[Rfam]
RNA sequence: AUUGGGAAAUGAUGACAGCUUAAUUGCUGGAUAGUAUCUAAGCAAAGCUUUGAAGGUUUUUUUUUUUUUUUUUUUUUUUUUCCCUUUUGCACGUCAGUCUGAUUCCAAC
Numbered sequence: 001a002u003u004g005g006g007a008a009a010u011g012a013u014g015a016c017a018g019c020u021u022a023a024u025u026g027c028u029g030g031a032u033a034g035u036a037u038c039u040a041a042g043c044a045a046a047g048c049u050u051u052g053a054a055g056g057u058u059u060u061u062u063u064u065u066u067u068u069u070u071u072u073u074u075u076u077u078u079u080u081u082c083c084c085u086u087u088u089g090c091a092c093g094u095c096a097g098u099c100u101g102a103u104u105c106c107a108a109c
Stems, first nucleotide, its partner, number of pairs: 002108006
The family of this 109-nucleotide RNA sequence from Gossypium stocksii is "Small nucleolar RNA Z122". Lineage of the source: Eukaryota > Pentapetalae > malvids > Malvoideae > Gossypium. A search with the family's covariance model found it, with a score of 50 bits.